A member of the RNA family "U5 spliceosomal RNA" from Muraenolepis orangiensis, 114 nucleotides long. The organism belongs to Muraenolepis, within Eukaryota. Rfam's curators write: U5 RNA is a component of both types of known spliceosome.
RNA sequence: GCACUCAGGUUUCUCUUCAGAUCGUAUAAAUCUUUCGCCUUUUACUAAAGAUUUCCGUGGAGAGGAACAAUAUGAGUAUCAACUAAUUUUUGACGCUCCGCCGGAAGGUGGGGC
Numbered sequence: 001g002c003a004c005u006c007a008g009g010u011u012u013c014u015c016u017u018c019a020g021a022u023c024g025u026a027u028a029a030a031u032c033u034u035u036c037g038c039c040u041u042u043u044a045c046u047a048a049a050g051a052u053u054u055c056c057g058u059g060g061a062g063a064g065g066a067a068c069a070a071u072a073u074g075a076g077u078a079u080c081a082a083c084u085a086a087u088u089u090u091u092g093a094c095g096c097u098c099c100g101c102c103g104g105a106a107g108g109u110g111g112g113g114c
Base pairs, nucleotide, nucleotide: 003077004076005075006074009068010067011066012065013064014063015062016061017060018059019058028054029053030052031051032050033049034048035047096113097112098111099110100109101108